RNA sequence: GCGGAUGGCCGGGUGAUCGCGUGGGGGACUUCGGUCCCUCGCGAGGAAAGUCCGGACUCCGGAAAGCGACGGUGCCGGGUAACGCCCGGACGGGGCAACCCGAUGGACAGCGCCACAGAGAACAGACCGCCCUUCAUGUAGGGGUAAGGGUGAAACGGUGGGGUAAGAGCUCACCGCGGGGCUGGCAACAGCGCCGGCAUGGCAAGCCCCACCGGGAGCAAUGCCGAAUAGGGAACCCACGGCUGCUUUCGCCAGGGUUCCGGGUAGGCAGCUAGAGCCUGUCGGCAACGGCAGGCGCAGAGGAAUGAUCACCCCCUGACCUUCGGGUCGGGGACAGAAUCCGGCUUACAGGCCAUCCGCGCAU
Dot-bracket structure: ((((((((((((((((((.(((((((((......)))))))))....[[[.[[[[[((((....[[.[.((((((((((.....)))))(((((....)))).)((...(((((............((((((((.....))))))..)).......((((((.......))))))((((.((((....)))).))).)..)))..)))))))))))))...((((......((((((...(((..].]].)))..)))))).....))))......((((((((....))))))))..........)))))))..........................]]]]]]]].).))))))))))....
Shown here is a 364-nucleotide sequence from Rhodobacteraceae bacterium THAF1, a member of the family "Bacterial RNase P class A". The match comes from Rfam's covariance-model search (312 bits). The base pairs follow the family's consensus structure, which is taken from published work. Its family is annotated with ribonuclease P activity, dimeric ribonuclease P complex and tRNA processing in the Gene Ontology.